[Rfam]
RNA: MIR5070 microRNA precursor family
Organism: Brachypodium distachyon
RNA sequence: CAAGGUAUCCUUUGACUCUUUUUAGUUCAACCAAAUGAAUUAAAAUUUUAUAAUGACACAAUUUUUUAGAAAACUAGUUUAUUUAUUUGAACUAAGGAGAGUCAGAGGGUACCCUA
Dot-bracket structure: .(.(((((((((((((((((((((((((((..((((((((((................................))))))))))..))))))))))))))))))))))))))).).